[Rfam]
RNA sequence: AACGACAACGCCAAACCCCGGGUGACCGGGGGACGGAAAGCCACGGGUCUCAAAGAGAUCGCCGGGUUGCCAGGU
Numbered sequence: 001a002a003c004g005a006c007a008a009c010g011c012c013a014a015a016c017c018c019c020g021g022g023u024g025a026c027c028g029g030g031g032g033a034c035g036g037a038a039a040g041c042c043a044c045g046g047g048u049c050u051c052a053a054a055g056a057g058a059u060c061g062c063c064g065g066g067u068u069g070c071c072a073g074g075u
Stems, first nucleotide, its partner, number of pairs: 001075001004071001011036002016031006034061001039068004044064003047059003
RNA: c-di-GMP-I-GGC riboswitch aptamer